[Rfam]
RNA sequence: CAGGUGCUGAUUGUCCAAACGCAAUUCUUGUGCUUGUGUGAAACAGGAGUUGUGGAUGGACAUCACGCUCCUG
Numbered sequence: 001c002a003g004g005u006g007c008u009g010a011u012u013g014u015c016c017a018a019a020c021g022c023a024a025u026u027c028u029u030g031u032g033c034u035u036g037u038g039u040g041a042a043a044c045a046g047g048a049g050u051u052g053u054g055g056a057u058g059g060a061c062a063u064c065a066c067g068c069u070c071c072u073g
Base pairs, nucleotide, nucleotide: 002072003071004070006068007067008065009064010063011062013061014060015059016058017057020054021053022052023051024050025049026048027047028046029045030044

Rfam assigns this 73-nucleotide RNA sequence from Danio rerio to the family "mir-219 microRNA precursor family". Taxonomically the source falls in Danio (Eukaryota, Metazoa, Craniata, Cypriniformes). The family has 92 seed sequences and 1,318 matches in Rfam 15.1. Pairs were carried over by alignment from the consensus structure, which was predicted with RNAalifold. On this family, see Lim et al., Science 2003: "Vertebrate microRNA genes". Rfam's curators put it in the seed alignment.